[Rfam]
RNA: UnaL2 LINE 3' element
RNA sequence: UUCAUUCAUUAUUGUAAGUCGCUUUGGAUAAAAGCGUCUGCUAAAUGGCUAAAU
Numbered sequence: 001u002u003c004a005u006u007c008a009u010u011a012u013u014g015u016a017a018g019u020c021g022c023u024u025u026g027g028a029u030a031a032a033a034g035c036g037u038c039u040g041c042u043a044a045a046u047g048g049c050u051a052a053a054u
Stems, first nucleotide, its partner, number of pairs: 013043001014041003020036006